[Rfam]
RNA sequence: ACAUGCAAAGAUAAAAACGCAAUGUACAUGUACUAGAGUCGGUAGGUAGCCAGUCCGUCCCAUCUUUAUAAUGGGGUAAGUAACCCUCCCUCCUUGGGUUGUCCAUUCUUUGUAUUUUCUAA
Dot-bracket structure: ...((((((((..........................(.(.(........).).).((((((.........))))))..........(((.....)))........))))))))........

Rfam assigns this 122-nucleotide RNA from Kandleria vitulina to the family "azaaromatic riboswitch aptamer (yjdF RNA)". The source organism's lineage runs through Bacteria, Bacillati, Bacillota, Coprobacillaceae and Kandleria vitulina. Pairs were carried over by alignment from the consensus structure, which is taken from published work.